[Rfam]
RNA sequence: GGCUGGUCCGAGUGCAGUGGUGUUUACAACUAAUUGAUCACAACCAGUUACAGAUUUCUUUGUUCCUUCUCCACUCCCACUGCUUCACUUGACUAGCCUUUU
Numbered sequence: 001g002g003c004u005g006g007u008c009c010g011a012g013u014g015c016a017g018u019g020g021u022g023u024u025u026a027c028a029a030c031u032a033a034u035u036g037a038u039c040a041c042a043a044c045c046a047g048u049u050a051c052a053g054a055u056u057u058c059u060u061u062g063u064u065c066c067u068u069c070u071c072c073a074c075u076c077c078c079a080c081u082g083c084u085u086c087a088c089u090u091g092a093c094u095a096g097c098c099u100u101u102u
Base pairs, nucleotide, nucleotide: 001098002097003096004095005094006093007092008091010090011089014086016081017080018079019078020077022076028064029063030062032060033059

Y RNA: a 102-nucleotide sequence from Ictidomys tridecemlineatus. A reference for the family is Teunissen et al. (2000), "Conserved features of Y RNAs: a comparison of experimentally derived secondary structures", Nucleic Acids Res. From the family's description: Y RNAs are components of the Ro ribonucleoprotein particle (Ro RNP), in association with Ro60 and La proteins. The Y RNAs and Ro60 and La proteins are well conserved, but the function of the Ro RNP is not known. In humans the RNA component can be one of four small RNAs -- hY1, hY3, hY4 and hY5. These small RNAs are predicted to fold into a conserved secondary structure containing three stem structures. Lineage of the source: Eukaryota > Eumetazoa > Teleostomi > Amniota > Ictidomys.